[Rfam]
RNA sequence: UUGGACACUUUUUAAGCAACGCAAUGUCAAUUUAUCGAGCUUAUGAAAGGGAAAGUGAAAAAAACUCGCGAACCUUGCAUUCGCUCAGUUUACUUACUACACGUUAUGAGUAGUAUGUAGCGCGCAAUUUUCCGCUGGGAAA
Dot-bracket structure: ..........................................((..((((....((((.......))))...))))..))...(.(.((.(((.((((((.........)))))).)))))).)....(((((....)))))
The family of this 142-nucleotide sequence from Pseudomonas sp. HPB0071 is "Pseudomonas sRNA P14".
By type it is a small RNA.
The family's consensus secondary structure was predicted with WAR.
Taxonomically the source falls in Pseudomonas (Bacteria, Pseudomonadota, Gammaproteobacteria, Pseudomonadaceae).
A search with the family's covariance model found it, with a score of 53 bits.